[Rfam]
RNA: Flavo-1 RNA
Organism: Cochleicola gelatinilyticus
RNA sequence: AUGCGUUAGGGAUUGAAGCGGCAUCCUUUUUUGGCUGUGUGCAGCCAUAAAAGAUAUAGCGGAAAGCCCGGCUGUUG
Numbered sequence: 001a002u003g004c005g006u007u008a009g010g011g012a013u014u015g016a017a018g019c020g021g022c023a024u025c026c027u028u029u030u031u032u033g034g035c036u037g038u039g040u041g042c043a044g045c046c047a048u049a050a051a052a053g054a055u056a057u058a059g060c061g062g063a064a065a066g067c068c069c070g071g072c073u074g075u076u077g
Base pairs, nucleotide, nucleotide: 009069010068011067013065014064018060019059023055024054025053029050030049032047033046034045035044036043